[Rfam]
RNA: MIR2118 microRNA precursor family
RNA sequence: UCGAAGAGGAAUAUAAAAGAGGGCCUAAGAGCAGUGGGAAUGGGAACAUGGAGGAAGGCUUAAUUUCAUUUAUGAGUCUUCCCAAUGCCUCCCAUUCCUAUUGUUCUUAGGUGCUAUUCCUCUUCUUUUCUGGC
Numbered sequence: 001u002c003g004a005a006g007a008g009g010a011a012u013a014u015a016a017a018a019g020a021g022g023g024c025c026u027a028a029g030a031g032c033a034g035u036g037g038g039a040a041u042g043g044g045a046a047c048a049u050g051g052a053g054g055a056a057g058g059c060u061u062a063a064u065u066u067c068a069u070u071u072a073u074g075a076g077u078c079u080u081c082c083c084a085a086u087g088c089c090u091c092c093c094a095u096u097c098c099u100a101u102u103g104u105u106c107u108u109a110g111g112u113g114c115u116a117u118u119c120c121u122c123u124u125c126u127u128u129u130c131u132g133g134c
Base pairs, nucleotide, nucleotide: 009125010124011123013121016118017117020115021114024111025110026109027108028107029106030105031104032103033102035100036099037098038097039096040095041094042093043092044091045090047087048086049085051083053082054081055080056079057078058077059076060075061074